Record summary: The family of this 399-nucleotide RNA sequence from Aestuariivirga litoralis is "Bacterial RNase P class A". From the family's description: Ribonuclease P (RNase P) is a ubiquitous endoribonuclease, found in archaea, bacteria and eukarya as well as chloroplasts and mitochondria. Its best characterised activity is the generation of mature 5'-ends of tRNAs by cleaving the 5'-leader elements of precursor-tRNAs. Cellular RNase Ps are ribonucleoproteins. RNA from bacterial RNase Ps retains its catalytic activity in the absence of the protein subunit, i.e. it is a ribozyme. It is annotated as a ribozyme. Taxonomically the source falls in Aestuariivirga (Bacteria, Pseudomonadota, Hyphomicrobiales, Aestuariivirgaceae).
RNA sequence: CCAGCUGGCUGGAUGACCGCUGCCGCUACGCCCGAAAGGGUGCGGGGGAGGAAAGUCCGGGCUCCAUGGAAACACGGUGCCGGGUAACGCCCGGCGGGGGCGACCCCAGGGACAGUGCCACAGAAAUGAUACCGCGGAUCCGGGCUUCGGCCUGACGCAAGGGUGAAAAGGUGCGGCAAGAGCGCACCGCGGCCCCAGCAAUGGGGACGGCAUGGCAAACCCCACCGGGAGCAAGACCGAAUAGGGGUGGCGCGGGGGUUUCGGCCCCCAGGGACGUUUCCGUUCCAGCCGCCCGGGUAGGUUGCGUGAAGCGUCCGGCAACGGGCGUUCCAGAUGAAUGGUCAUCCAGUGCGGAGCGAUCCGCAUGGACAGAACCCGGCUUACAGGCCGGCUGGCAUU
Number, nucleotide and partner (000 for none) at each position: 001c395002c394003a393004g392005c391006u390007g389008g388009c387010u386011g384012g346013a345014u344015g343016a342017c341018c340019g000020c048021u047022g000023c045024c044025g043026c042027u000028a000029c000030g000031c000032c000033c000034g000035a000036a000037a000038g000039g000040g000041u000042g026043c025044g024045g023046g000047g021048g020049a000050g000051g000052a000053a382054a381055g380056u000057c379058c378059g377060g376061g375062c231063u230064c229065c228066a000067u000068g000069g000070a000071a279072a278073c000074a000075c227076g226077g225078u224079g223080c094081c093082g092083g091084g090085u000086a000087a000088c000089g000090c084091c083092c082093g081094g080095c109096g107097g106098g105099g104100g000101c000102g000103a000104c099105c098106c097107c096108a000109g095110g222111g221112a000113c000114a000115g220116u219117g216118c215119c214120a000121c000122a000123g000124a000125a000126a000127u000128g000129a000130u000131a000132c162133c161134g158135c157136g156137g000138a000139u000140c000141c154142g153143g152144g151145c150146u000147u000148c000149g000150g145151c144152c143153u142154g141155a000156c136157g135158c134159a000160a000161g133162g132163g000164u000165g000166a000167a000168a000169a000170g188171g187172u186173g185174c184175g183176g000177c000178a000179a000180g000181a000182g000183c175184g174185c173186a172187c171188c170189g211190c209191g208192g000193c206194c205195c204196c203197a202198g000199c000200a000201a000202u197203g196204g195205g194206g193207a000208c191209g190210g000211c189212a000213u000214g119215g118216c117217a000218a000219a116220c115221c111222c110223c079224a078225c077226c076227g075228g065229g064230a063231g062232c000233a000234a000235g303236a302237c301238c300239g000240a000241a000242u000243a000244g000245g294246g293247g292248u291249g290250g289251c000252g000253c000254g000255g000256g000257g000258g000259u000260u000261u000262c000263g000264g000265c000266c000267c000268c000269c000270a000271g286272g285273g284274a283275c282276g000277u000278u072279u071280c000281c000282g275283u274284u273285c272286c271287a000288g000289c250290c249291g248292c247293c246294c245295g000296g000297g000298u000299a000300g238301g237302u236303u235304g000305c000306g000307u000308g000309a000310a329311g328312c327313g326314u325315c324316c323317g322318g000319c000320a000321a000322c317323g316324g315325g314326c313327g312328u311329u310330c000331c000332a000333g000334a000335u000336g000337a000338a000339u000340g018341g017342u016343c015344a014345u013346c012347c000348a000349g000350u000351g000352c000353g000354g000355a000356g000357c000358g000359a000360u000361c000362c000363g000364c000365a000366u000367g000368g000369a000370c000371a000372g000373a000374a000375c061376c060377c059378g058379g057380c055381u054382u053383a000384c011385a000386g010387g009388c008389c007390g006391g005392c004393u003394g002395g001396c000397a000398u000399u000